[Rfam]
Nucleotides: 072
Base pairs, nucleotide, nucleotide: 001038002037003036004035005034006033007032019031020030021029045058046057047056048055049054
Number, partner (000 for none) and nucleotide at each position: 001038g002037g003036g004035g005034u006033g007032u008000g009000u010000g011000a012000g013000u014000g015000a016000c017000u018000u019031a020030c021029c022000u023000c024000c025000a026000c027000g028000c029021g030020g031019u032007g033006c034005a035004c036003c037002c038001u039000g040000g041000g042000c043000a044000a045058c046057g047056u048055a049054u050000u051000c052000u053000u054049a055048u056047a057046c058045g059000g060000c061000a062000a063000a064000a065000a066000a067000g068000u069000c070000u071000a072000u